Plastid-psbN 5UTR RNA: a 61-nucleotide RNA sequence from Aegilops tauschii. The match comes from Rfam's covariance-model search (58 bits). Rfam 15.1 lists 2,345 matches to the family in 397 species. Rfam describes the family as follows. Plastid psbN is a non-coding RNA (ncRNA) recognised in plastids. It was reported as a conserved 11 stem-loop in the prime untranslated region (5UTR) of psbN genes. It has been reported that the motif is retained in a subset of mature transcripts in barley, which can suggests a possible role in transcript alternative 5 prime processing.
RNA sequence: UGCGACCUCCAUAAAAGGAGUAGUCCCUCAACCCAGGGUGACUUUCCCAUAUUCGGAAUUC
Numbered sequence: 001u002g003c004g005a006c007c008u009c010c011a012u013a014a015a016a017g018g019a020g021u022a023g024u025c026c027c028u029c030a031a032c033c034c035a036g037g038g039u040g041a042c043u044u045u046c047c048c049a050u051a052u053u054c055g056g057a058a059u060u061c
Stems, first nucleotide, its partner, number of pairs: 017045005023039004

It is annotated as a cis-regulatory element. The family's consensus secondary structure was predicted with LocARNA.